[Rfam]
Description:
FMN riboswitch aptamer (RFN element): a 151-nucleotide RNA sequence from Salisediminibacterium halotolerans. The match comes from Rfam's covariance-model search (113 bits). The family's consensus secondary structure is taken from published work.
RNA sequence: AUGUUCCUUCGGGGUCGGGUGAAAAUCCCAACCGGCGGUGAUGAGGCGCAAGCUUCUCAGUCCGUGACCCGGAUCUUUCAUGAUUGAAAGAGAAGGUGGAUUUGGUGGAACUCCAAAGCCGACAGUAAAGUCUGGAUGGGAGAAGGAACGG
Numbered sequence: 001a002u003g004u005u006c007c008u009u010c011g012g013g014g015u016c017g018g019g020u021g022a023a024a025a026u027c028c029c030a031a032c033c034g035g036c037g038g039u040g041a042u043g044a045g046g047c048g049c050a051a052g053c054u055u056c057u058c059a060g061u062c063c064g065u066g067a068c069c070c071g072g073a074u075c076u077u078u079c080a081u082g083a084u085u086g087a088a089a090g091a092g093a094a095g096g097u098g099g100a101u102u103u104g105g106u107g108g109a110a111c112u113c114c115a116a117a118g119c120c121g122a123c124a125g126u127a128a129a130g131u132c133u134g135g136a137u138g139g140g141a142g143a144a145g146g147a148a149c150g151g
Base pairs, nucleotide, nucleotide: 003149004148005147006146007145008144009143010142017029018028019027031131032130033121034120035065036064037063038062060119061118069096070095101117102116103115104114105113123134124133125132